[Rfam]
Shown here is a 78-nucleotide sequence from Proteiniclasticum aestuarii, a member of the family "Fluoride riboswitch aptamer (crcB RNA motif)".
RNA sequence: AGGAAAGUCGGGAAUGAAGAUCUCCCGUAGCCUUAAUGGCUAAAACCGCUUUUUAAGGCUGAUGACUUCUGCAUUUCC
Number, nucleotide and partner (000 for none) at each position: 001a000002g000003g000004a000005a000006a000007g000008u000009c000010g026011g025012g024013a023014a000015u000016g069017a068018a067019g066020a000021u064022c000023u013024c012025c011026c010027g000028u000029a000030g000031c000032c000033u000034u000035a000036a000037u000038g000039g000040c000041u000042a000043a000044a000045a000046c000047c000048g059049c058050u057051u056052u000053u000054u000055a000056a051057g050058g049059c048060u000061g000062a000063u000064g021065a000066c019067u018068u017069c016070u000071g000072c000073a000074u000075u000076u000077c000078c000